[Rfam]
RNA sequence: UCGAAGCUCCACCUAUAAAUAGAUAAGAUCCCAGUCUAGUUGAGAGAAGGUUUUGAAAAGAAGGAGCAAUAAUCAUUUUCUUGUUUUAUCAAGAGGGUUCUAUUGCUCCUUU
Numbered sequence: 001u002c003g004a005a006g007c008u009c010c011a012c013c014u015a016u017a018a019a020u021a022g023a024u025a026a027g028a029u030c031c032c033a034g035u036c037u038a039g040u041u042g043a044g045a046g047a048a049g050g051u052u053u054u055g056a057a058a059a060g061a062a063g064g065a066g067c068a069a070u071a072a073u074c075a076u077u078u079u080c081u082u083g084u085u086u087u088a089u090c091a092a093g094a095g096g097g098u099u100c101u102a103u104u105g106c107u108c109c110u111u112u
Stems, first nucleotide, its partner, number of pairs: 008023002011020001060112012075098002078095005
RNA: Plastid-psbA-1 3UTR RNA
Organism: Capsicum annuum